[Rfam]
Rfam assigns this 263-nucleotide RNA sequence from Equine hepatitis B virus to the family "Hepatitis B virus post-transcriptional regulatory element 1151-1410". Rfam links the family to the GO terms regulation of RNA splicing and nuclear export.

RNA sequence: UUACCCCAGAGGGCUGGCGUGUGCCAGGUGUUUGCUGAUGCAACCCCCACUGGCUGGGGCCUGGCUGAUCAUAGUUCAGCCUGUGUAAGGGGAGGGCGGUACCCCCGCCCUUUGCCCAUCCACGUGGCUGAAUUGAUAGCCGCCUGCCUUGCUCGCUGCUGGACAGGAGCUAGGCUCCUGGGGUCUGACAAUUCUGUGGUGUGCUCGAAGAAGUAUACUCAUUUCCCAUGGCUGCUCGGCUGCGUUGCCAACUGGAUCCUACG
Numbered sequence: 001u002u003a004c005c006c007c008a009g010a011g012g013g014c015u016g017g018c019g020u021g022u023g024c025c026a027g028g029u030g031u032u033u034g035c036u037g038a039u040g041c042a043a044c045c046c047c048c049a050c051u052g053g054c055u056g057g058g059g060c061c062u063g064g065c066u067g068a069u070c071a072u073a074g075u076u077c078a079g080c081c082u083g084u085g086u087a088a089g090g091g092g093a094g095g096g097c098g099g100u101a102c103c104c105c106c107g108c109c110c111u112u113u114g115c116c117c118a119u120c121c122a123c124g125u126g127g128c129u130g131a132a133u134u135g136a137u138a139g140c141c142g143c144c145u146g147c148c149u150u151g152c153u154c155g156c157u158g159c160u161g162g163a164c165a166g167g168a169g170c171u172a173g174g175c176u177c178c179u180g181g182g183g184u185c186u187g188a189c190a191a192u193u194c195u196g197u198g199g200u201g202u203g204c205u206c207g208a209a210g211a212a213g214u215a216u217a218c219u220c221a222u223u224u225c226c227c228a229u230g231g232c233u234g235c236u237c238g239g240c241u242g243c244g245u246u247g248c249c250a251a252c253u254g255g256a257u258c259c260u261a262c263g
Base pairs, nucleotide, nucleotide: 001043002042004040006037007034008033009032012029015026016025017024018023049086050085053084054083057080062078063077064076098116099115100114118257119256120255121254122253127248128247130245133242138236139235140234142232143231144230146175147174148173149172151170152169153168154167156166157165158164181202183200186199188197189196190195210226212224213223